[Rfam]
RNA sequence: AGCAAUAAAAUUACCUUGUAAUAGGUGUAUUGGACCCGAGGGCAGUACUCGGCGUCUCCACCAUGUUUUUUAAUUUAUGUGGGGACGAAUAAGGAUCGACAUGCAUAGUAAAGAUGGUAGCUUUGCUCGGUUAGACACCACCGCUAAGAGUUCAUAAUUUAAAUGCAAACGAUAAUUUUGCUGCUGAAGACAAUGUCGACGCAAUAGCUGCUUAA
Numbered sequence: 001a002g003c004a005a006u007a008a009a010a011u012u013a014c015c016u017u018g019u020a021a022u023a024g025g026u027g028u029a030u031u032g033g034a035c036c037c038g039a040g041g042g043c044a045g046u047a048c049u050c051g052g053c054g055u056c057u058c059c060a061c062c063a064u065g066u067u068u069u070u071u072a073a074u075u076u077a078u079g080u081g082g083g084g085a086c087g088a089a090u091a092a093g094g095a096u097c098g099a100c101a102u103g104c105a106u107a108g109u110a111a112a113g114a115u116g117g118u119a120g121c122u123u124u125g126c127u128c129g130g131u132u133a134g135a136c137a138c139c140a141c142c143g144c145u146a147a148g149a150g151u152u153c154a155u156a157a158u159u160u161a162a163a164u165g166c167a168a169a170c171g172a173u174a175a176u177u178u179u180g181c182u183g184c185u186g187a188a189g190a191c192a193a194u195g196u197c198g199a200c201g202c203a204a205u206a207g208c209u210g211c212u213u214a215a
Stems, first nucleotide, its partner, number of pairs: 001127005014117002017114001026105003031101002036052005053087007128143004

The family of this 215-nucleotide RNA from Wolbachia endosymbiont of Drosophila melanogaster is "permuted transfer-messenger RNA". The organism belongs to Wolbachia, within Bacteria. Rfam classes the family as a non-coding RNA gene. The family's consensus secondary structure is taken from published work.